[Rfam]
RNA sequence: AACAUCUGAGGACAGGAAGGUUUCUGACGCACCCUAAGUUUGAGGUAACUGAGAUGACGUAGUUACUGACCGUCAAGAUGUU
Numbered sequence: 001a002a003c004a005u006c007u008g009a010g011g012a013c014a015g016g017a018a019g020g021u022u023u024c025u026g027a028c029g030c031a032c033c034c035u036a037a038g039u040u041u042g043a044g045g046u047a048a049c050u051g052a053g054a055u056g057a058c059g060u061a062g063u064u065a066c067u068g069a070c071c072g073u074c075a076a077g078a079u080g081u082u
Base pairs, nucleotide, nucleotide: 001082002081003080004079005078006077007076011028013026014025015024019067020066021065030051031046032045033044056074057073058072059071
The family of this 82-nucleotide RNA sequence from Streptococcus mutans is "skipping-rope RNA". It is annotated as a small RNA. Rfam's curators put it in the seed alignment. Lineage of the source: Bacteria > Bacillati > Bacilli > Lactobacillales > Streptococcus mutans.